[Rfam]
RNA sequence: UGGUGCCCAAUGUGGGGCUGGAUACUGGGGGCACAUCGUGAGGAAGACAACGAAAAAACAGGAGUACACUCGCUAAAUCUCAAAAAAUUCGGAGACACACCGCAGGAGCCUGCCGCGACCAAACCAAAAGUAAGUCAAUCCGUCCGAUCAUGGGGCAAAAAUUGAGCCAACAUCAGAUUUAUGUCAAACAAUUAAAAAAGACUCUAAAAACACAAAAAAUAAAGGUUAAUACUGCAUAUUUAUUUCAUUUCUUUGAUUUUGUAAAGGACAUUUGUCCCU
Numbered sequence: 001u002g003g004u005g006c007c008c009a010a011u012g013u014g015g016g017g018c019u020g021g022a023u024a025c026u027g028g029g030g031g032c033a034c035a036u037c038g039u040g041a042g043g044a045a046g047a048c049a050a051c052g053a054a055a056a057a058a059c060a061g062g063a064g065u066a067c068a069c070u071c072g073c074u075a076a077a078u079c080u081c082a083a084a085a086a087a088u089u090c091g092g093a094g095a096c097a098c099a100c101c102g103c104a105g106g107a108g109c110c111u112g113c114c115g116c117g118a119c120c121a122a123a124c125c126a127a128a129a130g131u132a133a134g135u136c137a138a139u140c141c142g143u144c145c146g147a148u149c150a151u152g153g154g155g156c157a158a159a160a161a162u163u164g165a166g167c168c169a170a171c172a173u174c175a176g177a178u179u180u181a182u183g184u185c186a187a188a189c190a191a192u193u194a195a196a197a198a199a200g201a202c203u204c205u206a207a208a209a210a211c212a213c214a215a216a217a218a219a220u221a222a223a224g225g226u227u228a229a230u231a232c233u234g235c236a237u238a239u240u241u242a243u244u245u246c247a248u249u250u251c252u253u254u255g256a257u258u259u260u261g262u263a264a265a266g267g268a269c270a271u272u273u274g275u276c277c278c279u
Stems, first nucleotide, its partner, number of pairs: 006030003012025003036050001038048002088128002101117003105113001139157001141155001143154004163206002166202001168200001213255004218250002223241004264279001266277004
RNA: Mason-Pfizer monkey virus packaging signal
Organism: Nannospalax galili